[Rfam]
About this RNA: Shown here is a 149-nucleotide sequence from Crocuta crocuta, a member of the family "U12 minor spliceosomal RNA". It scores 102 bits against the family's covariance model. Taxonomically the source falls in Crocuta (Eukaryota, Metazoa, Gnathostomata, Mammalia). The literature on the family includes a 1997 paper in Trends Biochem Sci by Tarn and Steitz, "Pre-mRNA splicing: the discovery of a new spliceosome doubles the challenge".

RNA sequence: AUGCCUUAAACUUACAAGUAAGGAAAAUAAUGAUUCAGGGUGACCCCUAAAUCCUCACUGCUGAUGGGAGACAAAUUUUUGAACGGGUAAAGGUCAUCCCUAAGGUGACCUACUGAUUUGCAGGACGUCUGGGAGUCACAUUCUGCCUG
Numbered sequence: 001a002u003g004c005c006u007u008a009a010a011c012u013u014a015c016a017a018g019u020a021a022g023g024a025a026a027a028u029a030a031u032g033a034u035u036c037a038g039g040g041u042g043a044c045c046c047c048u049a050a051a052u053c054c055u056c057a058c059u060g061c062u063g064a065u066g067g068g069a070g071a072c073a074a075a076u077u078u079u080u081g082a083a084c085g086g087g088u089a090a091a092g093g094u095c096a097u098c099c100c101u102a103a104g105g106u107g108a109c110c111u112a113c114u115g116a117u118u119u120g121c122a123g124g125a126c127g128u129c130u131g132g133g134a135g136u137c138a139c140a141u142u143c144u145g146c147c148u149g
Base pairs, nucleotide, nucleotide: 004023005022006021007020008019032053033052034051035050037048038047039046054070055069056068058066084149085148086147087146088145091144092143093142097138100133101132103130104129105128106127107126109124110123111122113120